[Rfam]
RNA sequence: CAAGCAUGAAUGCUGCUAUUUUCCGCUUCUUUUUUUACUUUAGCACCUGAAUCCGGGAGGCUAGCGCGUGAAAGAAGAAACGGAAAACAGCGCCUAAGAGCCUCCCUGGUGGAGGCUUUUUUUAU
Numbered sequence: 001c002a003a004g005c006a007u008g009a010a011u012g013c014u015g016c017u018a019u020u021u022u023c024c025g026c027u028u029c030u031u032u033u034u035u036u037a038c039u040u041u042a043g044c045a046c047c048u049g050a051a052u053c054c055g056g057g058a059g060g061c062u063a064g065c066g067c068g069u070g071a072a073a074g075a076a077g078a079a080a081c082g083g084a085a086a087a088c089a090g091c092g093c094c095u096a097a098g099a100g101c102c103u104c105c106c107u108g109g110u111g112g113a114g115g116c117u118u119u120u121u122u123u124a125u
Stems, first nucleotide, its partner, number of pairs: 015091003020086006027079007035071004044055001060065001097119009
Shown here is a 125-nucleotide RNA sequence from Citrobacter freundii, a member of the family "Phenylalanine leader peptide".
The organism belongs to Citrobacter freundii complex, within Bacteria.
Gene Ontology term of the family: cellular amino acid metabolic process.
A search with the family's covariance model found it, with a score of 68 bits.
The literature on the family includes a 1978 paper in Proc Natl Acad Sci U S A by Zurawski et al., "Nucleotide sequence of the leader region of the phenylalanine operon of Escherichia coli".
The family has 71 seed sequences and 379 matches in Rfam 15.1.